[Rfam]
RNA sequence: CAGUUAGGGGAAUGAUGUACUACUACAGGGCUCUUCAGACGCUUUGCUAUCUUGAUUCUGCAUCUGAGAUGGACAUACGAAUG
Dot-bracket structure: ((.(((.....................................................................))..).))

About this RNA
Small nucleolar RNA J33: an 83-nucleotide RNA sequence from Hibiscus syriacus. It is annotated as a C/D-box small nucleolar RNA.